Rfam assigns this 87-nucleotide RNA sequence from Thermohalobacter berrensis to the family "Group II catalytic intron D1-D4-1". Group II introns are found in rRNA, tRNA and mRNA of organelles in fungi, plants and protists, and also in mRNA in bacteria. The base pairs follow the family's consensus structure.
[Rfam]
RNA sequence: CAACCUAUACGGUGAUGUAUAGCUGAACCUUGAGAAGUCAGCAGAGGUCAUAGUACCUGUCUAAACCUAGGAUAGGGAGGGAAGGAC
Numbered sequence: 001c002a003a004c005c006u007a008u009a010c011g012g013u014g015a016u017g018u019a020u021a022g023c024u025g026a027a028c029c030u031u032g033a034g035a036a037g038u039c040a041g042c043a044g045a046g047g048u049c050a051u052a053g054u055a056c057c058u059g060u061c062u063a064a065a066c067c068u069a070g071g072a073u074a075g076g077g078a079g080g081g082a083a084g085g086a087c
Stems, first nucleotide, its partner, number of pairs: 001025002005022007038045002047087003056080003061075003